[Rfam]
RNA sequence: GAAGUCGCCCUGGCAGUCGCUGCGCACGAAAGUGCGGGGAGGAAAGUCCGGGCUCCGCAGAGCAGGAUGCCGGCUAACGGCCGGGCACCGUGAGGUGACGGAAAGUCUCACUGGAAGCAGUGGGCAGCAAUGAUGAGUGUCUGAGUCCGGUUCGUCCCGUCUCAUUGUUGCUGGCAACAGAAAGCAAACCGCCGAUGGCGUCAGACGCCAGGUAAGGGUGAAAGGGUGAGGUAAGAGCUCACCGCGUCCGGGGCCAACGCCGGACGGCACGGUAAACCCCAUCCGGAGCAAGACCAAAUAGGGAAGCAUGGCGUGGCUCGCGUCGCUUCCGGGUAGGUUGCUUGAGCGUUUCGGUAACGGAUCGCCUAGAGGAAUGGCUGCCACGCAGCCGGGUACGCCCGGUUGUGCACAGAACCCGGCUUAUCGGGCGACUUUCCAA
Numbered sequence: 001g002a003a004g005u006c007g008c009c010c011u012g013g014c015a016g017u018c019g020c021u022g023c024g025c026a027c028g029a030a031a032g033u034g035c036g037g038g039g040a041g042g043a044a045a046g047u048c049c050g051g052g053c054u055c056c057g058c059a060g061a062g063c064a065g066g067a068u069g070c071c072g073g074c075u076a077a078c079g080g081c082c083g084g085g086c087a088c089c090g091u092g093a094g095g096u097g098a099c100g101g102a103a104a105g106u107c108u109c110a111c112u113g114g115a116a117g118c119a120g121u122g123g124g125c126a127g128c129a130a131u132g133a134u135g136a137g138u139g140u141c142u143g144a145g146u147c148c149g150g151u152u153c154g155u156c157c158c159g160u161c162u163c164a165u166u167g168u169u170g171c172u173g174g175c176a177a178c179a180g181a182a183a184g185c186a187a188a189c190c191g192c193c194g195a196u197g198g199c200g201u202c203a204g205a206c207g208c209c210a211g212g213u214a215a216g217g218g219u220g221a222a223a224g225g226g227u228g229a230g231g232u233a234a235g236a237g238c239u240c241a242c243c244g245c246g247u248c249c250g251g252g253g254c255c256a257a258c259g260c261c262g263g264a265c266g267g268c269a270c271g272g273u274a275a276a277c278c279c280c281a282u283c284c285g286g287a288g289c290a291a292g293a294c295c296a297a298a299u300a301g302g303g304a305a306g307c308a309u310g311g312c313g314u315g316g317c318u319c320g321c322g323u324c325g326c327u328u329c330c331g332g333g334u335a336g337g338u339u340g341c342u343u344g345a346g347c348g349u350u351u352c353g354g355u356a357a358c359g360g361a362u363c364g365c366c367u368a369g370a371g372g373a374a375u376g377g378c379u380g381c382c383a384c385g386c387a388g389c390c391g392g393g394u395a396c397g398c399c400c401g402g403u404u405g406u407g408c409a410c411a412g413a414a415c416c417c418g419g420c421u422u423a424u425c426g427g428g429c430g431a432c433u434u435u436c437c438a439a
Stems, first nucleotide, its partner, number of pairs: 001435010012382007020039002023036005044422003048419005053288004060319004065284005070084005085099001086097004100279002105277002108272002124213002131210002225243006244268001245266005250260001252258001292339004302330006310324005346365003350361004
Description
This 439-nucleotide RNA sequence from Fluviibacter phosphoraccumulans belongs to the Rfam family "Bacterial RNase P class A". Rfam links the family to the GO terms ribonuclease P activity, dimeric ribonuclease P complex and tRNA processing. The family's RNA type in Rfam is ribozyme. The family's consensus secondary structure is taken from published work. NCBI's taxonomy places the organism under Bacteria, Pseudomonadota, Betaproteobacteria, Rhodocyclales, Fluviibacter.